[Rfam]
The record is a 77-nucleotide RNA sequence from Nitrobacter sp. Nb-311A, which matches "Makes More Granules Regulator RNA (mmgR)" in Rfam. Pairs were carried over by alignment from the consensus structure. From the family's description: SuhB later renamed mmgR (makes more granules regulator) was a putative non-coding RNA found multiple times in the Agrobacterium tumefaciens genome and related alpha-proteobacteria. Other non-coding RNAs uncovered in the same analysis include: speF, ybhL, metA, and serC.Several studies inSinorhizobium meliloti showed that suhB element is indeed a non-coding RNA:firstly it was detected on Northern blot and called Sm8RNA, secondly in an RNAseq study referred to as SmelC689.The mutant phenotype's (strain lacking the small RNA) cytoplasm contains higher content of polyhydroxybutyrate (PBH)storage granules than wild type strain. The sRNA is required to limit the PBH intracellular accumulation when the nitrogen-fixing Sinorhizobium meliloti is under condition of surplus carbon in relation to nitrogen. The family has 87 seed sequences and 1,791 matches in Rfam 15.1.
RNA sequence: AUCGCUUGCCCUCCUUGGGCGUUUCCUCCCUAUAACUUGGGUCGCUUGUUCGACGAGCGGCCCUUUUUCUUUGCAAC
Numbered sequence: 001a002u003c004g005c006u007u008g009c010c011c012u013c014c015u016u017g018g019g020c021g022u023u024u025c026c027u028c029c030c031u032a033u034a035a036c037u038u039g040g041g042u043c044g045c046u047u048g049u050u051c052g053a054c055g056a057g058c059g060g061c062c063c064u065u066u067u068u069c070u071u072u073g074c075a076a077c
Base pairs, nucleotide, nucleotide: 008020009019010018011017040062041061042060043059044058045057046056047055048054